[Rfam]
RNA sequence: AUUGCGUAGUAGUCAUAGCAGAAGCGCUCACAGUGCGGACCUGUCGGAUUCUAAUGAAUCUGAAUUCUGCU
Numbered sequence: 001a002u003u004g005c006g007u008a009g010u011a012g013u014c015a016u017a018g019c020a021g022a023a024g025c026g027c028u029c030a031c032a033g034u035g036c037g038g039a040c041c042u043g044u045c046g047g048a049u050u051c052u053a054a055u056g057a058a059u060c061u062g063a064a065u066u067c068u069g070c071u
Base pairs, nucleotide, nucleotide: 009040010039013038014037017071018070019069020068021067022066023065024036025035026034045062046061047060048059049058050057051056
The family of this 71-nucleotide RNA sequence from Alligator mississippiensis is "Mammalian CPEB3 ribozyme".
For this family Rfam cites "A genomewide search for ribozymes reveals an HDV-like sequence in the human CPEB3 gene" (Salehi-Ashtiani et al., Science, 2006).
A search with the family's covariance model found it, with a score of 41 bits.